RNA sequence: UUUUGUUGCCGGGGGAGCUCAUGUUAUGGGCUGAGAGUGGGCUAUAAGCACCAGACCUCUUAACCUGAUCGGGAUAAUGCCCGCGUAGGAAGGUAUGAAAGUAUUUGC
Numbered sequence: 001u002u003u004u005g006u007u008g009c010c011g012g013g014g015g016a017g018c019u020c021a022u023g024u025u026a027u028g029g030g031c032u033g034a035g036a037g038u039g040g041g042c043u044a045u046a047a048g049c050a051c052c053a054g055a056c057c058u059c060u061u062a063a064c065c066u067g068a069u070c071g072g073g074a075u076a077a078u079g080c081c082c083g084c085g086u087a088g089g090a091a092g093g094u095a096u097g098a099a100a101g102u103a104u105u106u107g108c
Base pairs, nucleotide, nucleotide: 007095008094009093010092011059012058013057014056017031018030019029020028021027039051041049042048064089065088066087067086070083071082072081073080

A member of the RNA family "TPP riboswitch aptamer (THI element)" from Sporomusaceae bacterium FL31, 108 nucleotides long. The match comes from Rfam's covariance-model search (70 bits). Rfam's curators write: Vitamin B(1) in its active form thiamin pyrophosphate (TPP) is an essential coenzyme that is synthesised by coupling of pyrimidine and thiazole moieties in bacteria.